The record is a 100-nucleotide RNA from Vibrio toranzoniae, which matches "Purine riboswitch aptamer" in Rfam.
Riboswitches are metabolite binding domains within certain messenger RNAs that serve as precision sensors for their corresponding targets.
Gene Ontology term of the family: purine nucleobase biosynthetic process.

RNA sequence: UAUAGUUACAACAGUUUGCUUCGUAUAACCCCAAUGAUAUGGUUUGGGGGUCUCUACCAGCUCCCGCAAAGUGCUGAUUACGAAGGGUUUAGAUCACAAU
Numbered sequence: 001u002a003u004a005g006u007u008a009c010a011a012c013a014g015u016u017u018g019c020u021u022c023g024u025a026u027a028a029c030c031c032c033a034a035u036g037a038u039a040u041g042g043u044u045u046g047g048g049g050g051u052c053u054c055u056a057c058c059a060g061c062u063c064c065c066g067c068a069a070a071g072u073g074c075u076g077a078u079u080a081c082g083a084a085g086g087g088u089u090u091a092g093a094u095c096a097c098a099a100u
Stems, first nucleotide, its partner, number of pairs: 019085007029049006058076004063071001